The family of this 95-nucleotide RNA sequence from Advenella kashmirensis is "Proteo-phage-1 RNA". The family's RNA type in Rfam is small RNA. Lineage of the source: Bacteria > Pseudomonadati > Pseudomonadota > Burkholderiales > Advenella kashmirensis.

RNA sequence: CCCCAGCUACCGGGGACCGCUUGUAGGCUUGCAAGCGGAGAGGGUAGAUGAGGAUCAGACGGUGAGUGCCUCAUUUAGCGAAAACCCCGUCAGGC
Numbered sequence: 001c002c003c004c005a006g007c008u009a010c011c012g013g014g015g016a017c018c019g020c021u022u023g024u025a026g027g028c029u030u031g032c033a034a035g036c037g038g039a040g041a042g043g044g045u046a047g048a049u050g051a052g053g054a055u056c057a058g059a060c061g062g063u064g065a066g067u068g069c070c071u072c073a074u075u076u077a078g079c080g081a082a083a084a085c086c087c088c089g090u091c092a093g094g095c
Stems, first nucleotide, its partner, number of pairs: 001015004007047005018037008049073005058091005